[Rfam]
RNA sequence: AAAAAGGGUUUCUGCCGUGCGUGGCACGGGGGCGGUCGCGCGGCCGCCUCCGCGGAAUCGACAUCAAGAGAUUUCGGAAGCACAAUUUUUGUACGGGGGGGCGCCGGUAACCGCCUGUUCCGGCGCCCCG
Numbered sequence: 001a002a003a004a005a006g007g008g009u010u011u012c013u014g015c016c017g018u019g020c021g022u023g024g025c026a027c028g029g030g031g032g033c034g035g036u037c038g039c040g041c042g043g044c045c046g047c048c049u050c051c052g053c054g055g056a057a058u059c060g061a062c063a064u065c066a067a068g069a070g071a072u073u074u075c076g077g078a079a080g081c082a083c084a085a086u087u088u089u090u091g092u093a094c095g096g097g098g099g100g101g102c103g104c105c106g107g108u109a110a111c112c113g114c115c116u117g118u119u120c121c122g123g124c125g126c127c128c129c130g
Base pairs, nucleotide, nucleotide: 008081009080010079011078012077013026014025015024016023017022027052028051029050030049031048032047033046034045035044036043037042053076054075055074056073057072058071059070099128100127101126102125103124104123105122106121107120109119110118111117
The record is a 130-nucleotide RNA from Dryobates pubescens, which matches "U11 spliceosomal RNA" in Rfam. The family's RNA type in Rfam is spliceosomal small nuclear RNA. The match comes from Rfam's covariance-model search (112 bits). The family is grouped with related families in Rfam's "U1 clan".